This 129-nucleotide sequence from Myotis lucifugus belongs to the Rfam family "Small nucleolar RNA SNORA11".

[Rfam]
RNA sequence: UGGGUGUGGAGAGAACAGAGCGACUGAAGAAUGGCUUUUCUGUGUAUAACACAUCCAGCAGCAACUUGGGCUUACUCCUCACAGGUGGCAGAAUACUAUGGCCUUCCUGUGACAUUACACCCUAUACAU
Numbered sequence: 001u002g003g004g005u006g007u008g009g010a011g012a013g014a015a016c017a018g019a020g021c022g023a024c025u026g027a028a029g030a031a032u033g034g035c036u037u038u039u040c041u042g043u044g045u046a047u048a049a050c051a052c053a054u055c056c057a058g059c060a061g062c063a064a065c066u067u068g069g070g071c072u073u074a075c076u077c078c079u080c081a082c083a084g085g086u087g088g089c090a091g092a093a094u095a096c097u098a099u100g101g102c103c104u105u106c107c108u109g110u111g112a113c114a115u116u117a118c119a120c121c122c123u124a125u126a127c128a129u
Stems, first nucleotide, its partner, number of pairs: 002056007013045001015043006022035001024033001069122002072119001076114001080111002083104003088099001090097002
Description
Taxonomically the source falls in Myotis (Eukaryota, Opisthokonta, Dipnotetrapodomorpha, Chiroptera). The base pairs follow the family's consensus structure, which was predicted with RNAalifold. U107 (SNORA11) is a member of the H/ACA class of snoRNAs that guide the sites of modification of uridines to pseudouridines. This snoRNA was identified by RT-PCR from blood cells and its expression confirmed by Northern blot analysis. There is no predicted target for this guide snRNA. It is annotated as an H/ACA-box small nucleolar RNA.